[Rfam]
A member of the RNA family "c-di-GMP-I-GGC riboswitch aptamer" from Thermincola carboxydiphila, 84 nucleotides long.
RNA sequence: CACGAUAAAGGCUAAGCCGUCGAAAGACGGUGGCGCAAAGCCAUGGGUCUAAAGCUUAUUGCUAUGAUCGCCAGGCUGCCGAAG
Number, nucleotide and partner (000 for none) at each position: 001c084002a000003c081004g080005a000006u000007a000008a000009a000010g000011g036012c035013u000014a000015a000016g031017c030018c029019g028020u027021c026022g000023a000024a000025a000026g021027a020028c019029g018030g017031u016032g000033g000034c070035g012036c011037a000038a000039a077040g076041c075042c074043a000044u073045g072046g071047g068048u067049c066050u000051a000052a000053a000054g000055c000056u000057u000058a000059u000060u000061g000062c000063u000064a000065u000066g049067a048068u047069c000070g034071c046072c045073a044074g042075g041076c040077u039078g000079c000080c004081g003082a000083a000084g001